[Rfam]
U2 spliceosomal RNA: a 204-nucleotide sequence from Moschus moschiferus. It scores 93 bits against the family's covariance model. Rfam's curators write: U2 is a small nuclear RNA (snRNA) component of the spliceosome (involved in pre-mRNA splicing). Complementary binding between U2 snRNA (in an area lying towards the 5' end but 3' to hairpin I) and the branchpoint sequence (BPS) of the intron results the bulging out of an unpaired adenosine, on the BPS, which initiates a nucleophilic attack at the intronic 5' splice site, thus starting the first of two transesterification reactions that mediate splicing.
RNA sequence: AUCGCUUUUUGGCCCUUUGGACUAAGAUCAAGUGUAUUAUCUGUUCUUACCAGUUUAAUAUCUGGUAUGUCCUCUAUCUGAGGACAGUAUAUUAAAUUUCUAAAUAGGUUGCAAAUAUGUACUGCUCCAGUCCAUCUAUCUUUUUUUUCCCUUGAGGAUUCAGACUGCCUCUCCUGCUUCUGUUUUCUGUAGAGGAAAAACAUA
Numbered sequence: 001a002u003c004g005c006u007u008u009u010u011g012g013c014c015c016u017u018u019g020g021a022c023u024a025a026g027a028u029c030a031a032g033u034g035u036a037u038u039a040u041c042u043g044u045u046c047u048u049a050c051c052a053g054u055u056u057a058a059u060a061u062c063u064g065g066u067a068u069g070u071c072c073u074c075u076a077u078c079u080g081a082g083g084a085c086a087g088u089a090u091a092u093u094a095a096a097u098u099u100c101u102a103a104a105u106a107g108g109u110u111g112c113a114a115a116u117a118u119g120u121a122c123u124g125c126u127c128c129a130g131u132c133c134a135u136c137u138a139u140c141u142u143u144u145u146u147u148u149c150c151c152u153u154g155a156g157g158a159u160u161c162a163g164a165c166u167g168c169c170u171c172u173c174c175u176g177c178u179u180c181u182g183u184u185u186u187c188u189g190u191a192g193a194g195g196a197a198a199a200a201c202a203u204a
Stems, first nucleotide, its partner, number of pairs: 007027003011023002013020002048067006069085006113141001115139003119135002144197006151189001154186003
The family has 208 seed sequences and 71,512 matches in Rfam 15.1.